[Rfam]
RNA sequence: GCGGACAUCGUAUAAUGGUAUUACCUCAGCUUCCCAAGCUGAUGACACGGGUUCGAUUCCCGUUGUCCGCU
Numbered sequence: 001g002c003g004g005a006c007a008u009c010g011u012a013u014a015a016u017g018g019u020a021u022u023a024c025c026u027c028a029g030c031u032u033c034c035c036a037a038g039c040u041g042a043u044g045a046c047a048c049g050g051g052u053u054c055g056a057u058u059c060c061c062g063u064u065g066u067c068c069g070c071u
Stems, first nucleotide, its partner, number of pairs: 001070007010024003026042005047063005

Shown here is a 71-nucleotide RNA sequence from Photobacterium ganghwense, a member of the family "tRNA". Rfam classes the family as a transfer RNA. Pairs were carried over by alignment from the consensus structure, which is taken from published work. NCBI's taxonomy places the organism under Bacteria, Pseudomonadati, Pseudomonadota, Gammaproteobacteria, Photobacterium. The match comes from Rfam's covariance-model search (66 bits).